Source information: The family of this 53-nucleotide RNA from Enterobacteriaceae bacterium strain FGI 57 is "ES003 sRNA". A reference for the family is Rau et al. (2015), "Differential expression of small RNAs under chemical stress and fed-batch fermentation in E. coli", BMC Genomics. Lineage of the source: Bacteria > Pseudomonadati > Gammaproteobacteria > Enterobacterales > Enterobacteriaceae.
RNA sequence: GUUUGCCAGAAAUUCAAAGGUAAGCAGAUUUGCAUUGAUUUAUGUCACCAUUG
Numbered sequence: 001g002u003u004u005g006c007c008a009g010a011a012a013u014u015c016a017a018a019g020g021u022a023a024g025c026a027g028a029u030u031u032g033c034a035u036u037g038a039u040u041u042a043u044g045u046c047a048c049c050a051u052u053g
Base pairs, nucleotide, nucleotide: 001025002024003023004022005021006020007019033053034052036050037049039047